[Rfam]
RNA sequence: GGGGGAGCGCCGGAUCCUGGACUGUGUCCCGGCGGCCUCUGCUCCAGGGCCUGCGCUGGUGGAUUCGCGCUCCAUGCCGCGAAGCCCCCU
Numbered sequence: 001g002g003g004g005g006a007g008c009g010c011c012g013g014a015u016c017c018u019g020g021a022c023u024g025u026g027u028c029c030c031g032g033c034g035g036c037c038u039c040u041g042c043u044c045c046a047g048g049g050c051c052u053g054c055g056c057u058g059g060u061g062g063a064u065u066c067g068c069g070c071u072c073c074a075u076g077c078c079g080c081g082a083a084g085c086c087c088c089c090u
Stems, first nucleotide, its partner, number of pairs: 001089005010081001011079003016076001019073003023069004027063003030058005041050003
A member of the RNA family "mir-8799 microRNA precursor family" from Nyctereutes procyonoides, 90 nucleotides long. The family has 7 seed sequences and 20,638 matches in Rfam 15.1. Its family is annotated with miRNA-mediated post-transcriptional gene silencing and RISC complex in the Gene Ontology.